RNA sequence: CACCCAUCCCCGGGGAGCCCGCUCUUAAGGCUGAGAGGUGCAGGUGGCGCUGCACGACCCGUCGAACCUGAACCUGUUAGCACAGGCGGAGGGAGGGCGAUCAUGUCUCCG
Numbered sequence: 001c002a003c004c005c006a007u008c009c010c011c012g013g014g015g016a017g018c019c020c021g022c023u024c025u026u027a028a029g030g031c032u033g034a035g036a037g038g039u040g041c042a043g044g045u046g047g048c049g050c051u052g053c054a055c056g057a058c059c060c061g062u063c064g065a066a067c068c069u070g071a072a073c074c075u076g077u078u079a080g081c082a083c084a085g086g087c088g089g090a091g092g093g094a095g096g097g098c099g100a101u102c103a104u105g106u107c108u109c110c111g
Base pairs, nucleotide, nucleotide: 008097009096010095011061012060013059014058017031018030019029038055039054040053041052042051067092068091069090073086074085075084076083

Shown here is a 111-nucleotide RNA sequence from Sphingobium sp., a member of the family "TPP riboswitch aptamer (THI element)". Gene Ontology term of the family: thiamine pyrophosphate binding. The source organism's lineage runs through Bacteria, Pseudomonadati, Pseudomonadota, Sphingomonadales and Sphingobium. The family's consensus secondary structure is taken from published work. Vitamin B(1) in its active form thiamin pyrophosphate (TPP) is an essential coenzyme that is synthesised by coupling of pyrimidine and thiazole moieties in bacteria. The previously detected thiamin-regulatory element, thi box was extended, resulting in a new, highly conserved RNA secondary structure, the THI element, which is widely distributed in eubacteria and also occurs in some archaea. Analysis of operon structures identified a large number of new candidate thiamin-regulated genes, mostly transporters, in various prokaryotic organisms. The THI element is a riboswitch that directly binds to TPP to regulate gene expression through a variety of mechanisms in archaea, bacteria and eukaryotes. through a variety of mechanisms in archaea, bacteria and eukaryotes. Tandem TPP riboswitches have been reported where both TPP riboswitches respond independently to TPP. The structure of TPP riboswitch has been reported for Escherichia coli and Arabidopsis thaliana. It scores 60 bits against the family's covariance model.